[Rfam]
RNA sequence: UGGGCGUGAUGAUCGCAAUUGGUCCGUGUUUCUGAAAGGCUUUCGAGCCAUCUGGAGAAACACCAGCGAGUUUUGCCUUCUGAUCCA
Numbered sequence: 001u002g003g004g005c006g007u008g009a010u011g012a013u014c015g016c017a018a019u020u021g022g023u024c025c026g027u028g029u030u031u032c033u034g035a036a037a038g039g040c041u042u043u044c045g046a047g048c049c050a051u052c053u054g055g056a057g058a059a060a061c062a063c064c065a066g067c068g069a070g071u072u073u074u075g076c077c078u079u080c081u082g083a084u085c086c087a
Base pairs, nucleotide, nucleotide: 001087002086003085004084